A member of the RNA family "Selenocysteine transfer RNA" from Arsenicicoccus cauae, 92 nucleotides long. NCBI's taxonomy places the organism under Bacteria, Actinomycetota, Micrococcales, Intrasporangiaceae, Arsenicicoccus. Pairs were carried over by alignment from the consensus structure, which is taken from published work.
RNA sequence: GGAGGCGUACAGGUGCCUGGUGGUCCUCCCGGUCUUCAAAACCGGUGUGCGGCGGCAUCCGUCGCAGGCGGGUUCGAUUCCCGUCCGCCUCC
Dot-bracket structure: (((((((.(..((.(((....))).)).(((((.......)))))..(((((.........)))))..((((.......))))).)))))))